A member of the RNA family "Bacterial RNase P class A" from Roseovarius sp. 217, 432 nucleotides long. Ribonuclease P (RNase P) is a ubiquitous endoribonuclease, found in archaea, bacteria and eukarya as well as chloroplasts and mitochondria. For this family Rfam cites "The Ribonuclease P Database" (Brown, Nucleic Acids Res, 1999). The organism belongs to Roseovarius, within Bacteria.
Nucleotides: 432
Base pairs, nucleotide, nucleotide: 001428002427003426004425005424006423007422008421009420010419011417012375013374014373015372016371017370018369020042021041023039024038025037026036027035028034047415048414049413051412052411053410054409055408056243057242058241059240064309065308067306069239070238071237072236073235074088075087076086077085078084089103090101091100092099093098104234105233109232110231111228112227113226126174127173128170129169130168131167132166133165134163135162136161182200183199184198185197186196187195201223202221203220204219207216208215209214247331248330249329250328257322258321259320260319261318262317300314301313304310339358340357341356342355343354344353345352346351
Number, partner (000 for none) and nucleotide at each position: 001428g002427c003426g004425g005424a006423g007422g008421g009420c010419c011417g012375g013374a014373u015372g016371g017370c018369c019000g020042c021041g022000g023039c024038a025037u026036c027035c028034c029000c030000c031000a032000a033000a034028g035027g036026g037025g038024u039023g040000a041021c042020g043000a044000g045000g046000a047415a048414a049413g050000u051412c052411c053410g054409g055408a056243c057242u058241c059240c060000a061000c062000a063000a064309g065308a066000c067306a068000a069239c070238g071237g072236u073235g074088c075087c076086g077085g078084g079000u080000a081000a082000c083000g084078c085077c086076c087075g088074g089103c090101u091100g092099g093098g094000g095000u096000a097000a098093c099092c100091c101090a102000a103089g104234g105233g106000a107000a108000a109232g110231c111228g112227c113226c114000a115000c116000a117000g118000a119000g120000a121000a122000g123000a124000a125000a126174c127173c128170g129169c130168c131167c132166g133165u134163c135162g136161c137000a138000c139000c140000u141000g142000c143000g144000g145000u146000u147000c148000g149000c150000c151000a152000a153000g154000g155000g156000a157000g158000a159000c160000u161136g162135c163134g164000c165133a166132c167131g168130g169129g170128u171000a172000a173127g174126g175000g176000u177000g178000a179000a180000a181000c182200g183199g184198u185197g186196g187195g188000g189000u190000a191000a192000g193000a194000g195187c196186c197185c198184a199183c200182c201223g202221c203220g204219g205000g206000a207216c208215g209214g210000g211000c212000a213000a214209c215208c216207g217000g218000a219204c220203c221202g222000g223201c224000a225000c226113g227112g228111c229000a230000a231110g232109c233105c234104c235073c236072a237071c238070c239069g240059g241058g242057a243056g244000c245000a246000a247331u248330g249329c250328c251000a252000a253000a254000u255000a256000g257322g258321g259320a260319c261318c262317g263000c264000g265000c266000g267000u268000g269000g270000g271000g272000a273000c274000a275000g276000g277000u278000c279000g280000g281000g282000c283000a284000a285000c286000c287000g288000a289000u290000a291000c292000c293000g294000c295000c296000c297000g298000c299000a300314g301313g302000c303000a304310c305000g306067u307000c308065u309064u310304g311000g312000c313301c314300c315000g316000g317262c318261g319260g320259u321258c322257c323000g324000g325000g326000u327000u328250g329249g330248c331247a332000g333000c334000u335000a336000g337000a338000g339358g340357g341356g342355c343354g344353u345352u346351g347000g348000c349000a350000a351346c352345a353344a354343c355342g356341u357340c358339u359000c360000a361000a362000g363000a364000g365000g366000a367000a368000u369018g370017g371016u372015c373014a374013u375012c376000c377000a378000a379000c380000c381000c382000c383000g384000g385000a386000u387000c388000a389000c390000g391000g392000u393000c394000c395000g396000g397000g398000g399000u400000g401000g402000a403000c404000a405000g406000a407000a408055u409054c410053c411052g412051g413049c414048u415047u416000a417011u418000a419010g420009g421008c422007c423006c424005u425004c426003c427002g428001c429000g430000c431000g432000c